[Rfam]
RNA sequence: CUAACCUUUAAGUAAGUCCUGUGAGGCUUGCAAGGUUGUUAAGGGAUACGUGUAUAUUUAGACACGUCUACCUCUUUGCAACUUUGCAAAGAGGUUUUUUUUAU
Numbered sequence: 001c002u003a004a005c006c007u008u009u010a011a012g013u014a015a016g017u018c019c020u021g022u023g024a025g026g027c028u029u030g031c032a033a034g035g036u037u038g039u040u041a042a043g044g045g046a047u048a049c050g051u052g053u054a055u056a057u058u059u060a061g062a063c064a065c066g067u068c069u070a071c072c073u074c075u076u077u078g079c080a081a082c083u084u085u086g087c088a089a090a091g092a093g094g095u096u097u098u099u100u101u102u103a104u
Stems, first nucleotide, its partner, number of pairs: 003037006013030006040061001042059003046055003066099001070095010